[Rfam]
RNA sequence: UUAUGGGACGCUUUAGCUAUUGAACUGUUUUGUCCCUCUCUCUCAAAGAAAAUAUUGUUCUCUGUCAAAGAGUGACAAAACAGUUAAAUAGCUAAAGCAUCCUAUAAC
Dot-bracket structure: ((((((....(((((((((((.((((((((((.(..............((.(...).))....).))))..........)))))).)))))))))))....)))))).